[Rfam]
RNA: Makes More Granules Regulator RNA (mmgR)
Organism: Magnetospirillum sp. SS-4
RNA sequence: CCUUGUUGCCUUUCUUGGACGUUUCCUCCCAAACUCAAGCCGCCGGGGCGACCCGGCGGUUUUUUUUGGCGGCA
Numbered sequence: 001c002c003u004u005g006u007u008g009c010c011u012u013u014c015u016u017g018g019a020c021g022u023u024u025c026c027u028c029c030c031a032a033a034c035u036c037a038a039g040c041c042g043c044c045g046g047g048g049c050g051a052c053c054c055g056g057c058g059g060u061u062u063u064u065u066u067u068g069g070c071g072g073c074a
Base pairs, nucleotide, nucleotide: 008020010018011017040059041058042057043056044055045054046053047052